[Rfam]
RNA: mir-8/mir-141/mir-200 microRNA precursor family
RNA sequence: GUUAACAUCUUACCGGGCAGCAUUAGAUUGUUUUUGAAUCUCUAAUACUGUCAGGUAAAGAUGUCCUC
Numbered sequence: 001g002u003u004a005a006c007a008u009c010u011u012a013c014c015g016g017g018c019a020g021c022a023u024u025a026g027a028u029u030g031u032u033u034u035u036g037a038a039u040c041u042c043u044a045a046u047a048c049u050g051u052c053a054g055g056u057a058a059a060g061a062u063g064u065c066c067u068c
Stems, first nucleotide, its partner, number of pairs: 005064005010058005016052005022046006